[Rfam]
RNA: TPP riboswitch aptamer (THI element)
Organism: Phocaeicola coprophilus
RNA sequence: AGUAAAACAAAGGGGUGCCCUACCUGACGGGCUGAGAUCAUACCCUACGAACCUGAUGCGGUUAGCACCGACGAAGGGAUUGUUGCUUAUCGGCAU
Dot-bracket structure: .....(((((((((.(((((........)))).......)..)))).....(((....(((......)))....)))..)))))............